[Rfam]
RNA sequence: GAGCGAUUGUAUGCAGCAAGGUUAAGGACUUAAGGUCUGGAGCCGAAGCGAAAGCGAGUUUGAAAAGGGCGUUAAGUUGCAUACAAUGGGCCCGAAACCGGGUGACCUACCCAUGGUCAGGUUGAAGUGGAAGUAAAAUUCCAUGGAGGACCGAACCGACCUCCGUUGAAAAGGCGGCGGAUGAACUGUGGGUAGCGGAGAAAUUCCAAUCGAACCCGGAGAUAGCUGGUU
Numbered sequence: 001g002a003g004c005g006a007u008u009g010u011a012u013g014c015a016g017c018a019a020g021g022u023u024a025a026g027g028a029c030u031u032a033a034g035g036u037c038u039g040g041a042g043c044c045g046a047a048g049c050g051a052a053a054g055c056g057a058g059u060u061u062g063a064a065a066a067g068g069g070c071g072u073u074a075a076g077u078u079g080c081a082u083a084c085a086a087u088g089g090g091c092c093c094g095a096a097a098c099c100g101g102g103u104g105a106c107c108u109a110c111c112c113a114u115g116g117u118c119a120g121g122u123u124g125a126a127g128u129g130g131a132a133g134u135a136a137a138a139u140u141c142c143a144u145g146g147a148g149g150a151c152c153g154a155a156c157c158g159a160c161c162u163c164c165g166u167u168g169a170a171a172a173g174g175c176g177g178c179g180g181a182u183g184a185a186c187u188g189u190g191g192g193u194a195g196c197g198g199a200g201a202a203a204u205u206c207c208a209a210u211c212g213a214a215c216c217c218g219g220a221g222a223u224a225g226c227u228g229g230u231u
Base pairs, nucleotide, nucleotide: 006087007086008085009084010083011082012081013080014079015078016077017076020044021043022042023041026038027037028036048055049054058070059069060068061067091229092228094226098219099218100217101216102215103214107195108194109193110192111191112190113189114188115187116186117185118183120152121151122150123149127144128143129142130141131140132139156180157179158178160177161176163174164173197207198206199205
RNA: Bacterial large subunit ribosomal RNA, nucleotides 620 to 850
Organism: Faecalibacterium prausnitzii